[Rfam]
RNA sequence: GAAGUAGUCCAGAUGGUCGCCUCCGUCAGGAGGAGGAAAGUCCGGGCUCCACAGGGCAUGAUGCUGGAUAACGUCCAGCGGGGGUGACCCCAGGGAAAGUGCCACAGAGAGAAGUCCGCCUGCCCAGGCAGGUAAGGGUGAAAGGGUGAGGUAAGAGCUCACCGGGUCCGUCGGUGACGGCGGAUGCCAGGUAAACCCCAUCAGGAGCAAGACCUAAUAGGGAGGCGUCAAGGGUGGCCCGCCCGUGCCUCCGGGUUGGUCGCUCGAGGCUGCCGGUAACGGCAGACCCAGAUGAAUGGCCAUCGUCCGGGAAGGGGUAACCCGACCCGGAAACAGAACCCGGCUUACGGACUGCUUCAGCC
Numbered sequence: 001g002a003a004g005u006a007g008u009c010c011a012g013a014u015g016g017u018c019g020c021c022u023c024c025g026u027c028a029g030g031a032g033g034a035g036g037a038a039a040g041u042c043c044g045g046g047c048u049c050c051a052c053a054g055g056g057c058a059u060g061a062u063g064c065u066g067g068a069u070a071a072c073g074u075c076c077a078g079c080g081g082g083g084g085u086g087a088c089c090c091c092a093g094g095g096a097a098a099g100u101g102c103c104a105c106a107g108a109g110a111g112a113a114g115u116c117c118g119c120c121u122g123c124c125c126a127g128g129c130a131g132g133u134a135a136g137g138g139u140g141a142a143a144g145g146g147u148g149a150g151g152u153a154a155g156a157g158c159u160c161a162c163c164g165g166g167u168c169c170g171u172c173g174g175u176g177a178c179g180g181c182g183g184a185u186g187c188c189a190g191g192u193a194a195a196c197c198c199c200a201u202c203a204g205g206a207g208c209a210a211g212a213c214c215u216a217a218u219a220g221g222g223a224g225g226c227g228u229c230a231a232g233g234g235u236g237g238c239c240c241g242c243c244c245g246u247g248c249c250u251c252c253g254g255g256u257u258g259g260u261c262g263c264u265c266g267a268g269g270c271u272g273c274c275g276g277u278a279a280c281g282g283c284a285g286a287c288c289c290a291g292a293u294g295a296a297u298g299g300c301c302a303u304c305g306u307c308c309g310g311g312a313a314g315g316g317g318u319a320a321c322c323c324g325a326c327c328c329g330g331a332a333a334c335a336g337a338a339c340c341c342g343g344c345u346u347a348c349g350g351a352c353u354g355c356u357u358c359a360g361c362c
Stems, first nucleotide, its partner, number of pairs: 001358010012304007020033005038346003042343005047207004054240004059203005064078005079093001080091004094198002099196002101192003116137002118133006145163006165187001166185008211261004221252006232244004268287001270285006

Description: Bacterial RNase P class A: a 362-nucleotide sequence from Geobacter sp. SVR. It is annotated as a ribozyme. From the family's description: Ribonuclease P (RNase P) is a ubiquitous endoribonuclease, found in archaea, bacteria and eukarya as well as chloroplasts and mitochondria. Pairs were carried over by alignment from the consensus structure, which is taken from published work.